The family of this 48-nucleotide RNA from Acidipropionibacterium jensenii is "Guanidine-II riboswitch aptamer (mini-ykkC)". The match comes from Rfam's covariance-model search (33 bits). The organism belongs to Acidipropionibacterium, within Bacteria. Its family is annotated with regulation of gene expression in the Gene Ontology.
RNA sequence: CUGCCGGGACGACCCGGGCAGCGACGAGAAUGAGCCGGGACGACCCUG
Numbered sequence: 001c002u003g004c005c006g007g008g009a010c011g012a013c014c015c016g017g018g019c020a021g022c023g024a025c026g027a028g029a030a031u032g033a034g035c036c037g038g039g040a041c042g043a044c045c046c047u048g
Stems, first nucleotide, its partner, number of pairs: 001021004005016004035048001037046003